[Rfam]
Shown here is a 112-nucleotide sequence from Brevibacillus sp. WF146, a member of the family "SAM riboswitch aptamer (S box leader)". The organism belongs to Brevibacillus, within Bacteria.
RNA sequence: ACCUUAUCCAGAGAGGCGGAGGGACUGGCCCGAUGAAGCCCGGCAGCGGAUCUGCCCGUACGGCGGCAGAUGCUGUGCCAAUUCCAGCAGGAGCAUUCCUGACAGAUAAGAA
Numbered sequence: 001a002c003c004u005u006a007u008c009c010a011g012a013g014a015g016g017c018g019g020a021g022g023g024a025c026u027g028g029c030c031c032g033a034u035g036a037a038g039c040c041c042g043g044c045a046g047c048g049g050a051u052c053u054g055c056c057c058g059u060a061c062g063g064c065g066g067c068a069g070a071u072g073c074u075g076u077g078c079c080a081a082u083u084c085c086a087g088c089a090g091g092a093g094c095a096u097u098c099c100u101g102a103c104a105g106a107u108a109a110g111a112a
Stems, first nucleotide, its partner, number of pairs: 003110006013041001015040003021031003025087004042079004047075002050071007083104001088101005